A member of the RNA family "Gammaprotebacteria rimP leader" from Yersinia pestis, 100 nucleotides long. Rfam's curators put it in the seed alignment. The family's consensus secondary structure is taken from published work.
[Rfam]
RNA sequence: AGCCGCUUUGCGGCAAACAGGGUCCAGUUGCAUAAAGCCCCGAAUUUCGGGGUUUUUUGUUAUUUGACAGCAGAAUCACUGGGCUAUUAAGCCCUUUUUU
Numbered sequence: 001a002g003c004c005g006c007u008u009u010g011c012g013g014c015a016a017a018c019a020g021g022g023u024c025c026a027g028u029u030g031c032a033u034a035a036a037g038c039c040c041c042g043a044a045u046u047u048c049g050g051g052g053u054u055u056u057u058u059g060u061u062a063u064u065u066g067a068c069a070g071c072a073g074a075a076u077c078a079c080u081g082g083g084c085u086a087u088u089a090a091g092c093c094c095u096u097u098u099u100u
Base pairs, nucleotide, nucleotide: 034056035055036054037053038052039051040050041049042048081094082093083092084091